[Rfam]
RNA: mir-15 microRNA precursor family
Organism: Ramphastos sulfuratus
RNA sequence: CCUUAAGGUACUCUAGCAGCACAUCAUGGUUUGCAUGAUCUUGUAAAGAUGCGAAUCAUUAUUUGCUGCUUUAGCAAUUUAAGG
Numbered sequence: 001c002c003u004u005a006a007g008g009u010a011c012u013c014u015a016g017c018a019g020c021a022c023a024u025c026a027u028g029g030u031u032u033g034c035a036u037g038a039u040c041u042u043g044u045a046a047a048g049a050u051g052c053g054a055a056u057c058a059u060u061a062u063u064u065g066c067u068g069c070u071u072u073a074g075c076a077a078u079u080u081a082a083g084g
Stems, first nucleotide, its partner, number of pairs: 001084006015070007023062002026059011